[Rfam]
Source information: This 135-nucleotide RNA sequence from Microcaecilia unicolor belongs to the Rfam family "Small nucleolar RNA SNORA51". The organism belongs to Microcaecilia, within Eukaryota. The base pairs follow the family's consensus structure, which was predicted with PFOLD.
RNA sequence: UCCCUCCCAGUGCUUACCACAGGCAGUGUAUCCCUGCAUUGACUGUAUAGAAAGAGGAGGAAAAGCAUCUCUCCCUGACUACACCGCAGCUGAGAAUGCAGUUACUCAGAUUGCAUUGUCAUCAGGGAAACAAUC
Numbered sequence: 001u002c003c004c005u006c007c008c009a010g011u012g013c014u015u016a017c018c019a020c021a022g023g024c025a026g027u028g029u030a031u032c033c034c035u036g037c038a039u040u041g042a043c044u045g046u047a048u049a050g051a052a053a054g055a056g057g058a059g060g061a062a063a064a065g066c067a068u069c070u071c072u073c074c075c076u077g078a079c080u081a082c083a084c085c086g087c088a089g090c091u092g093a094g095a096a097u098g099c100a101g102u103u104a105c106u107c108a109g110a111u112u113g114c115a116u117u118g119u120c121a122u123c124a125g126g127g128a129a130a131c132a133a134u135c
Stems, first nucleotide, its partner, number of pairs: 003060005020045003026039004073127006087113003091108004096103001